RNA sequence: ACUUCUCGAGGUAGAAAAUUUGUGGCCUCUACACAACUAGAAAUAGGAUUGAGAUGUGGGGUAAGCGACACCCACCGAGAAGC
Numbered sequence: 001a002c003u004u005c006u007c008g009a010g011g012u013a014g015a016a017a018a019u020u021u022g023u024g025g026c027c028u029c030u031a032c033a034c035a036a037c038u039a040g041a042a043a044u045a046g047g048a049u050u051g052a053g054a055u056g057u058g059g060g061g062u063a064a065g066c067g068a069c070a071c072c073c074a075c076c077g078a079g080a081a082g083c
Stems, first nucleotide, its partner, number of pairs: 002082007011032005023068001025066002034051001037046003056075005
The family of this 83-nucleotide RNA sequence is "skipping-rope RNA".